[Rfam]
RNA sequence: CGCUUGAAGUCAGUCGUGUCUGCCGGAACUCAGCCUAGCCUCGGCUUGGUGUAUUUUCUGGUUGACGGGCCAGCAUCAAUUUUGACUGUCGGACAAAGGCUGGGGGAAUGUGGCACCUCCGGGUGUGUUAUAGACCCUGGUCGUAUACGAUAGUUGGGAUUGAGGACCGCAGCUUCGUGCUUAGGAUGCUGGCAUAAUGGCUUUAAACGACCCGUCUUGAAACACGG
Numbered sequence: 001c002g003c004u005u006g007a008a009g010u011c012a013g014u015c016g017u018g019u020c021u022g023c024c025g026g027a028a029c030u031c032a033g034c035c036u037a038g039c040c041u042c043g044g045c046u047u048g049g050u051g052u053a054u055u056u057u058c059u060g061g062u063u064g065a066c067g068g069g070c071c072a073g074c075a076u077c078a079a080u081u082u083u084g085a086c087u088g089u090c091g092g093a094c095a096a097a098g099g100c101u102g103g104g105g106g107a108a109u110g111u112g113g114c115a116c117c118u119c120c121g122g123g124u125g126u127g128u129u130a131u132a133g134a135c136c137c138u139g140g141u142c143g144u145a146u147a148c149g150a151u152a153g154u155u156g157g158g159a160u161u162g163a164g165g166a167c168c169g170c171a172g173c174u175u176c177g178u179g180c181u182u183a184g185g186a187u188g189c190u191g192g193c194a195u196a197a198u199g200g201c202u203u204u205a206a207a208c209g210a211c212c213c214g215u216c217u218u219g220a221a222a223c224a225c226g227g
Base pairs, nucleotide, nucleotide: 001209002208004206005205006204007203008202009201010200011199012198017067018066019065020064022062023061024060071191072190073189074188075187076186077185212227213226214225215224
Shown here is a 227-nucleotide part of an RNA from Jaapia argillacea, a member of the family "Eukaryotic large subunit ribosomal RNA". It scores 3287 bits against the family's covariance model.